[Rfam]
RNA sequence: UGAUCGAGUGGCCUCCGGUGGGACGGGGGCCGAGAAUGGAUCGGAUUUUUGCCGUCACUGACGGUGAUGUGUCGUAGCCCGACGACGCGUC
Numbered sequence: 001u002g003a004u005c006g007a008g009u010g011g012c013c014u015c016c017g018g019u020g021g022g023a024c025g026g027g028g029g030c031c032g033a034g035a036a037u038g039g040a041u042c043g044g045a046u047u048u049u050u051g052c053c054g055u056c057a058c059u060g061a062c063g064g065u066g067a068u069g070u071g072u073c074g075u076a077g078c079c080c081g082a083c084g085a086c087g088c089g090u091c
Stems, first nucleotide, its partner, number of pairs: 001043005010031008066091009
A member of the RNA family "Rhodo-rpoB RNA" from Pelagimonas varians, 91 nucleotides long. Pairs were carried over by alignment from the consensus structure, which is taken from published work.